The record is a 166-nucleotide RNA from Pogona vitticeps, which matches "U1 spliceosomal RNA" in Rfam. The base pairs follow the family's consensus structure, which is taken from published work. The family has 100 seed sequences and 40,184 matches in Rfam 15.1. Rfam classes the family as a spliceosomal small nuclear RNA.

[Rfam]
RNA sequence: AUUCAUACCUUGUAGGGGAAAUACCAUGUUGUAAAAAUGUUUUUUCCAGGGAGAGGCUCAUCCAUUGCACUUUGGGUGUGCUGUUGACCCCUGUGAUUUCCCCAAAUGUGGGGAACUCAACUACAUAAUUGUUGUUAAUGGGGCAUUAUAUUUGUGAUUUCUCUCU
Numbered sequence: 001a002u003u004c005a006u007a008c009c010u011u012g013u014a015g016g017g018g019a020a021a022u023a024c025c026a027u028g029u030u031g032u033a034a035a036a037a038u039g040u041u042u043u044u045u046c047c048a049g050g051g052a053g054a055g056g057c058u059c060a061u062c063c064a065u066u067g068c069a070c071u072u073u074g075g076g077u078g079u080g081c082u083g084u085u086g087a088c089c090c091c092u093g094u095g096a097u098u099u100c101c102c103c104a105a106a107u108g109u110g111g112g113g114a115a116c117u118c119a120a121c122u123a124c125a126u127a128a129u130u131g132u133u134g135u136u137a138a139u140g141g142g143g144c145a146u147u148a149u150a151u152u153u154g155u156g157a158u159u160u161c162u163c164u165c166u
Base pairs, nucleotide, nucleotide: 012124013123014122015121016047017046018045019044020043021042023041025039026038027037048092049091050090051089053085055082056081057080059078060077061076062075063074094119095118096117097115098114099113101111102110140164141163142162143161145160149156150155
Dot-bracket structure: ...........((((((((((.(.(((.........))).)))))))((((.(.(((.(((((..........))))).)))..)...)))).((((((.((.......)).))).))).))))...............((((.(...((....))...)))))..
The match comes from Rfam's covariance-model search (96 bits).